[Rfam]
RNA sequence: AAGCGUUCUCAGGGCGGGGUGUAAUUCCCCACCGGCGGUAAUAACAGCAAUGUUUAGCCCGCGAGCGCCUGCAGAUGGUCAACCAUCCGCAGGGUCAGCAGAUUCCGGUGCGAUUCCGGAGCCGACGGUGAUAGUCCGGAUGCAAGAGAACGCGU
Numbered sequence: 001a002a003g004c005g006u007u008c009u010c011a012g013g014g015c016g017g018g019g020u021g022u023a024a025u026u027c028c029c030c031a032c033c034g035g036c037g038g039u040a041a042u043a044a045c046a047g048c049a050a051u052g053u054u055u056a057g058c059c060c061g062c063g064a065g066c067g068c069c070u071g072c073a074g075a076u077g078g079u080c081a082a083c084c085a086u087c088c089g090c091a092g093g094g095u096c097a098g099c100a101g102a103u104u105c106c107g108g109u110g111c112g113a114u115u116c117c118g119g120a121g122c123c124g125a126c127g128g129u130g131a132u133a134g135u136c137c138g139g140a141u142g143c144a145a146g147a148g149a150a151c152g153c154g155u
Stems, first nucleotide, its partner, number of pairs: 003153008017029003031135002033124002035062004057122002065099002104120005126138003
Dot-bracket structure: ..((((((((......(((.......))).[[((((((..................[[))))..((...............................))....(((((.......)))))]])).(((.....]]))).......))))))))..
The record is a 155-nucleotide RNA from Rhodoferax sp. OV413, which matches "FMN riboswitch aptamer (RFN element)" in Rfam. The source organism's lineage runs through Bacteria, Pseudomonadota, Betaproteobacteria, Comamonadaceae and Rhodoferax. The family's consensus secondary structure is taken from published work.